[Rfam]
RNA sequence: UAGGACCUUCGGGGCAGGGUGAAAAUCCCGACCGGCGGUGAAGGCUCGCUCAGAGCUUAAGCCCGCGACUCGUCGAUUUCGGUGCGAAAUGACGACUGACUUGGUGCAAUUCCAAGGCCGACGGUAUAGUCCGGAUGGGAGAAGGUCACA
Numbered sequence: 001u002a003g004g005a006c007c008u009u010c011g012g013g014g015c016a017g018g019g020u021g022a023a024a025a026u027c028c029c030g031a032c033c034g035g036c037g038g039u040g041a042a043g044g045c046u047c048g049c050u051c052a053g054a055g056c057u058u059a060a061g062c063c064c065g066c067g068a069c070u071c072g073u074c075g076a077u078u079u080c081g082g083u084g085c086g087a088a089a090u091g092a093c094g095a096c097u098g099a100c101u102u103g104g105u106g107c108a109a110u111u112c113c114a115a116g117g118c119c120g121a122c123g124g125u126a127u128a129g130u131c132c133g134g135a136u137g138g139g140a141g142a143a144g145g146u147c148a149c150a
Stems, first nucleotide, its partner, number of pairs: 004147007017029003031130002033120002035066004061118002070095005100116005122133003
This 150-nucleotide RNA from Paenibacillus tyrphae belongs to the Rfam family "FMN riboswitch aptamer (RFN element)". The organism belongs to Paenibacillus, within Bacteria. It scores 117 bits against the family's covariance model.